[Rfam]
RNA sequence: UAUCAAUAUUUGCUCCCGCUAACCAAGACCUAUGGGAGGAUAAAUUACGUCUUUUUACCUGCAAGUGAGGGAUUUGCAGGAAUAAGUUUCGCA
Numbered sequence: 001u002a003u004c005a006a007u008a009u010u011u012g013c014u015c016c017c018g019c020u021a022a023c024c025a026a027g028a029c030c031u032a033u034g035g036g037a038g039g040a041u042a043a044a045u046u047a048c049g050u051c052u053u054u055u056u057a058c059c060u061g062c063a064a065g066u067g068a069g070g071g072a073u074u075u076g077c078a079g080g081a082a083u084a085a086g087u088u089u090c091g092c093a
Stems, first nucleotide, its partner, number of pairs: 013038005025053005058080007
Rfam assigns this 93-nucleotide RNA sequence to the family "PhotoRC-II RNA". It is annotated as a cis-regulatory element.